[Rfam]
RNA sequence: ACGUCGCGAUGAUGCGAGAGGUUGCUGACACACCCGGCCCCUUUGCCAUGGUGGGAUGUCAGGGGAUUUUCGCGGAGUAUGUCCGAUACAAAUUGGGCGA
Dot-bracket structure: .............(((.((((...(((((............................)))))....)))))))......(((((((......))))))).
Record summary:
Rfam assigns this 100-nucleotide sequence from Paenibacillus ginsengarvi to the family "S10-Clostridia ribosomal protein leader". A reference for the family is Eckert and Weinberg (2020), "Discovery of 20 novel ribosomal leader candidates in bacteria and archaea", BMC Microbiol. It scores 37 bits against the family's covariance model. The base pairs follow the family's consensus structure, which is taken from published work.